permuted transfer-messenger RNA: a 226-nucleotide sequence from Rhodovibrio sodomensis.
[Rfam]
RNA sequence: GGUGCUGAACGCCUCACUAACUACUCGUACUGGACCCGGGGGCAGUACCCGGCGGCUCCACCAGACACGCCGGCGCCCGCCUCGGGCGGCGCCGGCCCCAUGGGGCCGAAACAGGCUCGACAGGCGGGAAAAGGUCAGGUUUGUACCCGGCAUGGUACCGCCGUCAUCGGACCAUCAGAGAGUUGCGAACGAUAACGCUGCUCCGGAGAUGGCCGCCGCUGCGUAA
Dot-bracket structure: (((((........(.((........(((.(((...(((((.......)))))(((((((..........................................)))))))............)))))).......)).).....)))))((((........))))...............................................................
Rfam classes the family as a non-coding RNA gene. Bacterial tmRNA, also known as 10Sa RNA or SsrA, is named for its dual tRNA and mRNA-like properties. Its role is to liberate the mRNA from a stalled ribosome.